[Rfam]
RNA sequence: GUAGGCUAUGGCGACAUGGUGCCAACUACCAUUGGGGGAAAGAUAGUGGGUUCUCUGUGUGCAAUUGCAGGUGUGUUAACCAUUGCCUUACCAGUCCCUGUCAUAGUGUCUAAU
Number, nucleotide and partner (000 for none) at each position: 001g114002u113003a000004g111005g110006c000007u108008a107009u106010g000011g104012c000013g102014a101015c100016a099017u000018g097019g096020u000021g095022c094023c000024a000025a000026c000027u000028a000029c000030c000031a000032u000033u000034g000035g000036g000037g077038g076039a000040a074041a000042g000043a000044u000045a000046g000047u000048g000049g000050g062051u061052u000053c000054u000055c000056u000057g000058u000059g000060u000061g051062c050063a000064a000065u000066u000067g000068c000069a000070g000071g000072u000073g000074u040075g000076u038077u037078a000079a000080c000081c000082a000083u000084u000085g000086c000087c000088u000089u000090a000091c000092c000093a000094g022095u021096c019097c018098c000099u016100g015101u014102c013103a000104u011105a000106g009107u008108g007109u000110c005111u004112a000113a002114u001